[Rfam]
RNA: tRNA
RNA sequence: GAUCUUGUGGCCUAGUGGUUAGGGCACCUGUCUUACAGAAUACACCACGCUGUAGUGACCACAGGGGAUCGCAGGUUCGAACCCUGCCAAGAUCA
Number, nucleotide and partner (000 for none) at each position: 001g094002a093003u092004c091005u090006u089007g088008u000009g000010g025011c024012c023013u022014a000015g000016u000017g000018g000019u000020u000021a000022g013023g012024g011025c010026a000027c065028c064029u063030g062031u061032c000033u000034u000035a000036c000037a000038g000039a000040a000041u000042a000043c000044a000045c000046c000047a000048c000049g000050c000051u000052g000053u000054a000055g000056u000057g000058a000059c000060c000061a031062c030063a029064g028065g027066g000067g000068a000069u000070c000071g087072c086073a085074g084075g083076u000077u000078c000079g000080a000081a000082c000083c075084c074085u073086g072087c071088c007089a006090a005091g004092a003093u002094c001095a000